RNA sequence: AACAAACCAUUGACCGAAAAAGUAACUGUUUAUCAGGAAUGACAAGAGAGGGAAAGACGUGGCUGAAAUCUUUCCUACAGACCCUUACAGUGAACAACAUUCGAGAGGUUUUUUGUCGAAAGAGUAUGCUUUAGUAGGCAAAAACGGAUCUGGCCGUUAUCCAGCGUUGAGAGGGUUAAUUUAUUAACCAACUAGGGUGGAACCGCGGAAGCUUAAAAGCUCUCGUCCCUUGC
Numbered sequence: 001a002a003c004a005a006a007c008c009a010u011u012g013a014c015c016g017a018a019a020a021a022g023u024a025a026c027u028g029u030u031u032a033u034c035a036g037g038a039a040u041g042a043c044a045a046g047a048g049a050g051g052g053a054a055a056g057a058c059g060u061g062g063c064u065g066a067a068a069u070c071u072u073u074c075c076u077a078c079a080g081a082c083c084c085u086u087a088c089a090g091u092g093a094a095c096a097a098c099a100u101u102c103g104a105g106a107g108g109u110u111u112u113u114u115g116u117c118g119a120a121a122g123a124g125u126a127u128g129c130u131u132u133a134g135u136a137g138g139c140a141a142a143a144a145c146g147g148a149u150c151u152g153g154c155c156g157u158u159a160u161c162c163a164g165c166g167u168u169g170a171g172a173g174g175g176u177u178a179a180u181u182u183a184u185u186a187a188c189c190a191a192c193u194a195g196g197g198u199g200g201a202a203c204c205g206c207g208g209a210a211g212c213u214u215a216a217a218a219g220c221u222c223u224c225g226u227c228c229c230u231u232g233c
Base pairs, nucleotide, nucleotide: 007108008107015103016102017101018100025091026090027089028088029087040079041078052074053073054072055071056070057069111143112142113141114140115139116138117137145156146155147154174189175188176187177186178185179184194230195229196228197227205226206225207224208223
Dot-bracket structure: ......((......((((......(((((..........((..........((((((...........))))))...)).......)))))........))))...))..(((((((...................))))))).(((......))).................((((((....))))))....((((.......((((..............))))))))...

Rfam assigns this 233-nucleotide sequence from Psychrobacillus sp. BL-248-WT-3 to the family "T-box leader". Uncharged tRNA acts as the effector for transcription antitermination of genes in the T-box leader family. T-boxes are found upstream of many aminoacyl-tRNA synthetase genes and some amino acid biosynthetic genes usually in Gram-positive bacteria. The anticodon of a specific tRNA base pairs to a specifier sequence within the T-box motif, and the NCCA acceptor tail of the tRNA base pairs to a conserved bulge in the T-box antiterminator hairpin. By type it is a cis-regulatory leader. The source organism's lineage runs through Bacteria, Bacillati, Bacilli, Bacillaceae and Psychrobacillus.